[Rfam]
RNA sequence: CAUGUCUGAUAUGAUGAGAAACAUGUUGGUAGGGACAUCUGAAAUAAAUGAAGAAACGCCAACUUUACUGACCAGACAUG
Number, nucleotide and partner (000 for none) at each position: 001c080002a079003u078004g077005u076006c000007u000008g000009a000010u000011a000012u000013g000014a000015u000016g000017a000018g000019a000020a000021a000022c000023a000024u000025g000026u000027u000028g000029g000030u000031a000032g000033g000034g000035a000036c000037a000038u000039c000040u000041g000042a000043a000044a000045u000046a000047a000048a000049u000050g000051a000052a000053g000054a000055a000056a000057c000058g000059c000060c000061a000062a000063c000064u000065u000066u000067a000068c000069u000070g000071a000072c000073c000074a000075g000076a005077c004078a003079u002080g001
RNA: Small nucleolar RNA SNORD74
Organism: Oncorhynchus tshawytscha